The family of this 77-nucleotide RNA sequence from Xenopus laevis is "Small nucleolar RNA SNORD11".
It scores 58 bits against the family's covariance model.
Taxonomically the source falls in Xenopus (Eukaryota, Bilateria, Dipnotetrapodomorpha, Xenopus).
Rfam classes the family as a C/D-box small nucleolar RNA.
Rfam links the family to the GO terms nucleolus and RNA processing.
The literature on the family includes a 2001 paper in EMBO J by Huttenhofer et al., "RNomics: an experimental approach that identifies 201 candidates for novel, small, non-messenger RNAs in mouse".
RNA sequence: UGGUCAGUGAUGAUGUUUAUACCUAAUUGCCUGAUAACCUAUGAGGGCAAUUUUAGUCACUACCUCAUCUGAGACCA
Numbered sequence: 001u002g003g004u005c006a007g008u009g010a011u012g013a014u015g016u017u018u019a020u021a022c023c024u025a026a027u028u029g030c031c032u033g034a035u036a037a038c039c040u041a042u043g044a045g046g047g048c049a050a051u052u053u054u055a056g057u058c059a060c061u062a063c064c065u066c067a068u069c070u071g072a073g074a075c076c077a
Base pairs, nucleotide, nucleotide: 001077002076003075004074